[Rfam]
HDV ribozyme from F. prausnitzii: a 70-nucleotide RNA from Rodentolepis nana. It scores 46 bits against the family's covariance model. The literature on the family includes a 2009 paper in Science by Webb et al., "Widespread occurrence of self-cleaving ribozymes".
RNA sequence: GGUGUGUAAUAGACUUACCUCCACGUGGUGCACACUGGGCAACGUAUAACCAUAUGGCUAAAAGGUUCAU
Numbered sequence: 001g002g003u004g005u006g007u008a009a010u011a012g013a014c015u016u017a018c019c020u021c022c023a024c025g026u027g028g029u030g031c032a033c034a035c036u037g038g039g040c041a042a043c044g045u046a047u048a049a050c051c052a053u054a055u056g057g058c059u060a061a062a063a064g065g066u067u068c069a070u
Stems, first nucleotide, its partner, number of pairs: 001036007017029003043056005
Background: Gene Ontology term of the family: catalytic activity. Pairs were carried over by alignment from the consensus structure, which is taken from published work. NCBI's taxonomy places the organism under Eukaryota, Eumetazoa, Lophotrochozoa, Hymenolepididae, Rodentolepis.